Shown here is a 127-nucleotide RNA from Rousettus aegyptiacus, a member of the family "Small nucleolar RNA SNORA25". The family's RNA type in Rfam is H/ACA-box small nucleolar RNA. The organism belongs to Rousettus, within Eukaryota. About the family: ACA25 is a member of the H/ACA class of snoRNA that guide the sites of modification of uridines to pseudouridines.

[Rfam]
RNA sequence: AGGUCAUUUCAGAGAGGGCUUAUGAGGCUGUGAAGCCGGGAGCUCUUAACACUGUGACCGGAGAUUGCAGUUCACCAUGGGCUGCUGUAGUCUCAACAGCACUGUGUCCUCCUCAGGAGAUGCGACG
Numbered sequence: 001a002g003g004u005c006a007u008u009u010c011a012g013a014g015a016g017g018g019c020u021u022a023u024g025a026g027g028c029u030g031u032g033a034a035g036c037c038g039g040g041a042g043c044u045c046u047u048a049a050c051a052c053u054g055u056g057a058c059c060g061g062a063g064a065u066u067g068c069a070g071u072u073c074a075c076c077a078u079g080g081g082c083u084g085c086u087g088u089a090g091u092c093u094c095a096a097c098a099g100c101a102c103u104g105u106g107u108c109c110u111c112c113u114c115a116g117g118a119g120a121u122g123c124g125a126c127g
Stems, first nucleotide, its partner, number of pairs: 002059006014047008023039001026037002072120002075117002079113003087105005092099002